[Rfam]
RNA sequence: CUCUUAUCAAGAGAGGUGGAGGGAUGUGCCCGAUGAAACCCGGCAACCGUCAGCGAAAAAAUGCUGAUAUGGUGCCAAUUCACACAAAGCAAUUGUGCUUUGAUAGAUGAGAG
Numbered sequence: 001c002u003c004u005u006a007u008c009a010a011g012a013g014a015g016g017u018g019g020a021g022g023g024a025u026g027u028g029c030c031c032g033a034u035g036a037a038a039c040c041c042g043g044c045a046a047c048c049g050u051c052a053g054c055g056a057a058a059a060a061a062u063g064c065u066g067a068u069a070u071g072g073u074g075c076c077a078a079u080u081c082a083c084a085c086a087a088a089g090c091a092a093u094u095g096u097g098c099u100u101u102g103a104u105a106g107a108u109g110a111g112a113g
Base pairs, nucleotide, nucleotide: 001113002112003111004110005109006108007107008106013041015040016039017038021031022030023029025084026083027082028081042076043075044074045073047072048071049068050067051066052065053064054063080105085102086101087100088099089098090097
The record is a 113-nucleotide RNA sequence from Niallia nealsonii, which matches "SAM riboswitch aptamer (S box leader)" in Rfam. A search with the family's covariance model found it, with a score of 89 bits.